RNA sequence: ACCCAGGUACGACCCGGCACCCGCAUGGUGCGGGGACCGGCCUGGUGCACAACCCUGAGGGA
Number, nucleotide and partner (000 for none) at each position: 001a046002c045003c000004c044005a043006g042007g041008u000009a000010c000011g000012a000013c035014c034015c033016g000017g031018c030019a029020c028021c027022c000023g000024c000025a000026u000027g021028g020029u019030g018031c017032g000033g015034g014035g013036a000037c000038c000039g000040g000041c007042c006043u005044g004045g002046u001047g000048c000049a000050c000051a000052a000053c000054c000055c000056u000057g000058a000059g000060g000061g000062a000
RNA: L31-Corynebacteriaceae ribosomal protein leader
Organism: Corynebacterium nuruki